RNA sequence: UCAACGUGUAAUACCCUGGGAGAUCAUUUUUUCCAGGCUCUGUCCACAUGACUUAGGGGAGCACAGGGCUCUGCCCCAUGAUGUAGUCUCUUUCUACAGCAUUGGUGAUGAAGCUGGGUCUGGUGGACCUGCAUAUUCCUGUAGCUUCUCAGAGUCCUGUGGACAAUCACUGGGGAGACAAACCAUGCAGGAAACAUGU
Dot-bracket structure: ((((.(((..(((.(((.((((....))))....)))...))).)...((......((((..((((............)..)))..))))....))..)).))))......................(((((((..........((((((...((((...)))).......)))))).......)))))))........

Record summary
Rfam assigns this 199-nucleotide RNA from Cebus imitator to the family "Small nucleolar RNA SNORA73 family". On this family, see Enright et al., RNA 1996: "5'ETS rRNA processing facilitated by four small RNAs: U14, E3, U17, and U3". U17 (SNORA73A and SNORA73B) also known as E1 belongs to the H/ACA class of small nucleolar RNAs (snoRNAs). Vertebrate U17 is intron-encoded and ranges in length from 200-230 nucleotides, longer than most snoRNAs. The family has 66 seed sequences and 2,326 matches in Rfam 15.1. By type it is an H/ACA-box small nucleolar RNA. The organism belongs to Cebus, within Eukaryota. It scores 128 bits against the family's covariance model. Rfam links the family to the GO terms nucleolus and RNA processing.